[Rfam]
RNA sequence: CGCCAUGCUUCCAUGGGACCUGCCAGGAUGGCAGCCUCCCUUCCUACUCAUGGCAGAGCAACCGUCGCCUUGCUUUUUGGCAUAGCUCCCCUCAUUUCAUUGGGGGGAGACUCUGACUUGGGCAAGUCACAUUC
Numbered sequence: 001c002g003c004c005a006u007g008c009u010u011c012c013a014u015g016g017g018a019c020c021u022g023c024c025a026g027g028a029u030g031g032c033a034g035c036c037u038c039c040c041u042u043c044c045u046a047c048u049c050a051u052g053g054c055a056g057a058g059c060a061a062c063c064g065u066c067g068c069c070u071u072g073c074u075u076u077u078u079g080g081c082a083u084a085g086c087u088c089c090c091c092u093c094a095u096u097u098c099a100u101u102g103g104g105g106g107g108a109g110a111c112u113c114u115g116a117c118u119u120g121g122g123c124a125a126g127u128c129a130c131a132u133u134c
Stems, first nucleotide, its partner, number of pairs: 002054006015040004020034005071131002077125003081120002086109003091104004
A member of the RNA family "Small nucleolar RNA SNORA24" from Notechis scutatus, 134 nucleotides long. It scores 83 bits against the family's covariance model. The organism belongs to Notechis, within Eukaryota. ACA24 is a member of the H/ACA class of snoRNA that guide the sites of modification of uridines to pseudouridines. Its family is annotated with RNA processing and nucleolus in the Gene Ontology.